[Rfam]
RNA sequence: ACAGUUUCGUCGAGGUUACCUCCUCCCAACCUCGGCGGAUAUGACCGGCACCUCCUCCUCCCAAAAUGCCGGUCACCCCAUAACGACACCCGCCGAACCUCCUCCCUCGGCGGGUGUUGUUU
Numbered sequence: 001a002c003a004g005u006u007u008c009g010u011c012g013a014g015g016u017u018a019c020c021u022c023c024u025c026c027c028a029a030c031c032u033c034g035g036c037g038g039a040u041a042u043g044a045c046c047g048g049c050a051c052c053u054c055c056u057c058c059u060c061c062c063a064a065a066a067u068g069c070c071g072g073u074c075a076c077c078c079c080a081u082a083a084c085g086a087c088a089c090c091c092g093c094c095g096a097a098c099c100u101c102c103u104c105c106c107u108c109g110g111c112g113g114g115u116g117u118u119g120u121u122u
Stems, first nucleotide, its partner, number of pairs: 007038003011034006043074008086117011
The family of this 122-nucleotide RNA from Nitratireductor pacificus is "Alphaproteobacterial ar14". Rfam describes the family as follows. Smr14C2 was renamed NfeR1 (Nodule Formation Efficiency RNA) highly expressed in salt stress and during the symbiotic interaction on legume roots. Gene Ontology term of the family: biological process involved in symbiotic interaction. The literature on the family includes a 2017 paper in Environ Microbiol by Robledo et al., "A conserved alpha-proteobacterial small RNA contributes to osmoadaptation and symbiotic efficiency of rhizobia on legume roots". The base pairs follow the family's consensus structure. The match comes from Rfam's covariance-model search (90 bits).